[Rfam]
RNA sequence: UCGGGUUUCUUUGUUCCUAAAACAAAGUGGUGCGGAUGGGAUAACUCCCGCCUGGUUUCUUGCUUCCAGUCAAAGAGCAAGUGGUGGAUCCAAAU
Numbered sequence: 001u002c003g004g005g006u007u008u009c010u011u012u013g014u015u016c017c018u019a020a021a022a023c024a025a026a027g028u029g030g031u032g033c034g035g036a037u038g039g040g041a042u043a044a045c046u047c048c049c050g051c052c053u054g055g056u057u058u059c060u061u062g063c064u065u066c067c068a069g070u071c072a073a074a075g076a077g078c079a080a081g082u083g084g085u086g087g088a089u090c091c092a093a094a095u
Stems, first nucleotide, its partner, number of pairs: 009027007037050005052069004059081006
RNA: wcaG RNA